RNA sequence: GGGCGAGUGGCGGAAUUGGUAGACGCGCUAGGUUCAGGGUCUAGUGUCCGCGAGGACGUGGGGGUUCGAGUCCCCCCUCGCCCA
Numbered sequence: 001g002g003g004c005g006a007g008u009g010g011c012g013g014a015a016u017u018g019g020u021a022g023a024c025g026c027g028c029u030a031g032g033u034u035c036a037g038g039g040u041c042u043a044g045u046g047u048c049c050g051c052g053a054g055g056a057c058g059u060g061g062g063g064g065u066u067c068g069a070g071u072c073c074c075c076c077c078u079c080g081c082c083c084a
Stems, first nucleotide, its partner, number of pairs: 001083007010026003028044005060076005